[Rfam]
RNA sequence: AAUAGAUAUCGGAGCAACAGCUUUGCGUGAAGCGGGUCAGGGGAGGAAUCCAGCAGCCCUAAGCGAUGUAAGCUGUGUGCUCUAUUUUUUGUGUAAUAGU
Numbered sequence: 001a002a003u004a005g006a007u008a009u010c011g012g013a014g015c016a017a018c019a020g021c022u023u024u025g026c027g028u029g030a031a032g033c034g035g036g037u038c039a040g041g042g043g044a045g046g047a048a049u050c051c052a053g054c055a056g057c058c059c060u061a062a063g064c065g066a067u068g069u070a071a072g073c074u075g076u077g078u079g080c081u082c083u084a085u086u087u088u089u090u091g092u093g094u095a096a097u098a099g100u
Stems, first nucleotide, its partner, number of pairs: 004092001006090001008088001011083004015077001017076006023068001026065003034059004042051003
Shown here is a 100-nucleotide sequence from Streptococcus mutans, a member of the family "Bacterial small signal recognition particle RNA". About the family: The signal recognition particle (SRP) is a universally conserved ribonucleoprotein involved in the co-translational targeting of proteins to membranes.